[Rfam]
RNA sequence: UGGAUUGAUGAUGACCAUUGAUUGUGUAUAGUCAUGAAUCAUGACUAUAAGUCUGUGAAUCAACUCCAC
Numbered sequence: 001u002g003g004a005u006u007g008a009u010g011a012u013g014a015c016c017a018u019u020g021a022u023u024g025u026g027u028a029u030a031g032u033c034a035u036g037a038a039u040c041a042u043g044a045c046u047a048u049a050a051g052u053c054u055g056u057g058a059a060u061c062a063a064c065u066c067c068a069c
Stems, first nucleotide, its partner, number of pairs: 002067003006063001
The family of this 69-nucleotide RNA sequence from Mesocricetus auratus is "Small nucleolar RNA SNORD113/SNORD114 family".
The family is grouped with related families in Rfam's "SNORD74 clan".
About the family: The imprinted human domain at 14q32 contains two clusters of tandemly repeated small nucleolar RNAs named 14q(I) and 14q(II) snoRNAs. These two clusters are named SNORD113 and SNORD114 respectively in the HGNC approved gene symbol nomenclature.
NCBI's taxonomy places the organism under Eukaryota, Chordata, Tetrapoda, Eutheria, Mesocricetus.
The match comes from Rfam's covariance-model search (39 bits).